[Rfam]
RNA sequence: GAUAUUAAGCAGAAGCGCCCGCUUCUCACCUGAUCGACAUGGGGUUGACAGGUUCAUAUGGUCGGUGAAUCAAUGAUAGUGUGGGCGCGUGGCGUCUACACUUUUUUGCUUUU
Numbered sequence: 001g002a003u004a005u006u007a008a009g010c011a012g013a014a015g016c017g018c019c020c021g022c023u024u025c026u027c028a029c030c031u032g033a034u035c036g037a038c039a040u041g042g043g044g045u046u047g048a049c050a051g052g053u054u055c056a057u058a059u060g061g062u063c064g065g066u067g068a069a070u071c072a073a074u075g076a077u078a079g080u081g082u083g084g085g086c087g088c089g090u091g092g093c094g095u096c097u098a099c100a101c102u103u104u105u106u107u108g109c110u111u112u113u
Stems, first nucleotide, its partner, number of pairs: 011026006028053003034048005080100009
Shown here is a 113-nucleotide RNA from Tepidibacillus decaturensis, a member of the family "Ribosomal protein L20 leader".
By type it is a cis-regulatory leader.
Rfam's curators write: This family is a putative r-protein leader autoregulatory structure found in B. subtilis and other low-GC Gram-positive bacteria.